[Rfam]
Record summary
The family of this 108-nucleotide sequence from Duncaniella muris is "TPP riboswitch aptamer (THI element)". The organism belongs to Duncaniella, within Bacteria. Its family is annotated with thiamine pyrophosphate binding in the Gene Ontology. The base pairs follow the family's consensus structure, which is taken from published work.
RNA sequence: GCGCCGACAAAGGGGUGCGGCAUUCACCCUCCUGUGAUUGCCGCUGAGAUGAUACCCUCUGAACCUGAUGCGGUUAGUACCGCCGAAGGGAUUGCACUUGACUUUGCC
Dot-bracket structure: .......(((((((.((((((..................))))).......)..)))).....(((...((((......))))...)))..)))..............
Numbered sequence: 001g002c003g004c005c006g007a008c009a010a011a012g013g014g015g016u017g018c019g020g021c022a023u024u025c026a027c028c029c030u031c032c033u034g035u036g037a038u039u040g041c042c043g044c045u046g047a048g049a050u051g052a053u054a055c056c057c058u059c060u061g062a063a064c065c066u067g068a069u070g071c072g073g074u075u076a077g078u079a080c081c082g083c084c085g086a087a088g089g090g091a092u093u094g095c096a097c098u099u100g101a102c103u104u105u106g107c108c
Stems, first nucleotide, its partner, number of pairs: 008094003011058004016052001017044005064089003070083004